The family of this 194-nucleotide RNA sequence from Miscanthus lutarioriparius is "MIR1435 microRNA precursor family". A search with the family's covariance model found it, with a score of 98 bits. Rfam 15.1 lists 1,765 matches to the family in 31 species. Rfam links the family to the GO terms RISC complex and miRNA-mediated post-transcriptional gene silencing. The organism belongs to Miscanthus, within Eukaryota.
RNA sequence: UCGCUUUGUCUUAAGUCAAACUUCUCUAACUUGACCAAAUUUUUAGAAAAAAAUAUAUUAACAUCUACAAGUUCAAAUAGAUGCACCAUCGGAACCUAUUUCAUGGAGAAUUUAAUGAAACUAAUUUGAUGUUCUAGAGAUUUUUUUAAUGAACUUGAUCAAAGUUAGAGAAGUUUGACUUAGCAUAAAGUUAA
Numbered sequence: 001u002c003g004c005u006u007u008g009u010c011u012u013a014a015g016u017c018a019a020a021c022u023u024c025u026c027u028a029a030c031u032u033g034a035c036c037a038a039a040u041u042u043u044u045a046g047a048a049a050a051a052a053a054u055a056u057a058u059u060a061a062c063a064u065c066u067a068c069a070a071g072u073u074c075a076a077a078u079a080g081a082u083g084c085a086c087c088a089u090c091g092g093a094a095c096c097u098a099u100u101u102c103a104u105g106g107a108g109a110a111u112u113u114a115a116u117g118a119a120a121c122u123a124a125u126u127u128g129a130u131g132u133u134c135u136a137g138a139g140a141u142u143u144u145u146u147u148a149a150u151g152a153a154c155u156u157g158a159u160c161a162a163a164g165u166u167a168g169a170g171a172a173g174u175u176u177g178a179c180u181u182a183g184c185a186u187a188a189a190g191u192u193a194a
Stems, first nucleotide, its partner, number of pairs: 005189005011183016031162004044149001046147006057141002064138004069133001073129006
Dot-bracket structure: ....(((((.((((((((((((((((....((((.........(.((((((.....((.....((((.(...((((((.............................................))))))...).)))).)))))))).).........)))).....)))))))))))))))).))))).....